[Rfam]
RNA: mir-6302 microRNA precursor family
RNA sequence: UGUAAGAUGCGAAGACUGACGGGGGGCUUGCACAUUUCCAUUUAUUGCAAACUCAUCGUCAGCCUUCUCGCAUUUUAUA
Numbered sequence: 001u002g003u004a005a006g007a008u009g010c011g012a013a014g015a016c017u018g019a020c021g022g023g024g025g026g027c028u029u030g031c032a033c034a035u036u037u038c039c040a041u042u043u044a045u046u047g048c049a050a051a052c053u054c055a056u057c058g059u060c061a062g063c064c065u066u067c068u069c070g071c072a073u074u075u076u077a078u079a
Base pairs, nucleotide, nucleotide: 001079002078003077004076005075006074007073008072009071010070011069012068013065014064016062017061018060019059020058021057022056024054025053026052028050029049030048031047032046